[Rfam]
RNA sequence: ACAGUACAAACUGAGCAGGCGAUGCCGAAAGAGGCGUGGGGCCGGGCCGCAGAUGCGGCAGCAGAUAUGAGCGAAUCAGAGACAUAUCUGUGGGACAGUG
Numbered sequence: 001a002c003a004g005u006a007c008a009a010a011c012u013g014a015g016c017a018g019g020c021g022a023u024g025c026c027g028a029a030a031g032a033g034g035c036g037u038g039g040g041g042c043c044g045g046g047c048c049g050c051a052g053a054u055g056c057g058g059c060a061g062c063a064g065a066u067a068u069g070a071g072c073g074a075a076u077c078a079g080a081g082a083c084a085u086a087u088c089u090g091u092g093g094g095a096c097a098g099u100g
Base pairs, nucleotide, nucleotide: 010099011098012097013096016094018043019042020041022037023036024035025034026033046059047058048057049056050055061091062090063089064088065087066086067085068084069083
Rfam assigns this 100-nucleotide RNA from Clostridiaceae bacterium OM08-6BH to the family "NiCo (Nickel/Cobalt) riboswitch aptamer". The match comes from Rfam's covariance-model search (80 bits). Clan: NiCo_riboswitches. The literature on the family includes a 2015 paper in Mol Cell by Furukawa et al., "Bacterial riboswitches cooperatively bind Ni(2+) or Co(2+) ions and control expression of heavy metal transporters". The organism belongs to Clostridiaceae, within Bacteria.